[Rfam]
RNA sequence: ACCCUCCAGUUCCCUUUCCCAUCGGAUCUGAACACUGGUCUGGGUGGUCGUAAAAGGAGGAAAAGUAACAUUGAAACUGGCCUGAGUGCAUGUAGCACGUGGGCUAGUUUCAAACAAGA
Numbered sequence: 001a002c003c004c005u006c007c008a009g010u011u012c013c014c015u016u017u018c019c020c021a022u023c024g025g026a027u028c029u030g031a032a033c034a035c036u037g038g039u040c041u042g043g044g045u046g047g048u049c050g051u052a053a054a055a056g057g058a059g060g061a062a063a064a065g066u067a068a069c070a071u072u073g074a075a076a077c078u079g080g081c082c083u084g085a086g087u088g089c090a091u092g093u094a095g096c097a098c099g100u101g102g103g104c105u106a107g108u109u110u111c112a113a114a115c116a117a118g119a
Base pairs, nucleotide, nucleotide: 003060004059005058006057007056019047020046021045022044023043025040026039027038028037077107078106079105080104081103082102083101
RNA: Small nucleolar RNA SNORA61